Shown here is a 99-nucleotide RNA sequence from Lentivirus humimdef1, a member of the family "HIV primer binding site (PBS)". It is annotated as a cis-regulatory element. About the family: This family consists of several, structured HIV primer binding sites (PBSs). tRNA(3)(Lys) binds to the PBS to initiate reverse transcription. Gene Ontology term of the family: tRNA binding. Lineage of the source: Viruses > Pararnavirae > Artverviricota > Lentivirus > Lentivirus humimdef1. The sequence is in the family's curated seed alignment. A reference for the family is Damgaard et al. (2004), "RNA interactions in the 5' region of the HIV-1 genome", J Mol Biol.
RNA sequence: CUCUGGUAACUAGAGAUCCCUCAGACCCUUUUAGUCAGUAGGAAAAAUCUCUAGCAGUGGCGCCCGAACAGGGACUUGAAAGAGAAAGAGAAACCAGAG
Numbered sequence: 001c002u003c004u005g006g007u008a009a010c011u012a013g014a015g016a017u018c019c020c021u022c023a024g025a026c027c028c029u030u031u032u033a034g035u036c037a038g039u040a041g042g043a044a045a046a047a048u049c050u051c052u053a054g055c056a057g058u059g060g061c062g063c064c065c066g067a068a069c070a071g072g073g074a075c076u077u078g079a080a081a082g083a084g085a086a087a088g089a090g091a092a093a094c095c096a097g098a099g
Stems, first nucleotide, its partner, number of pairs: 001099007010054008019042001022038001024036003058087001061084001063073003075082002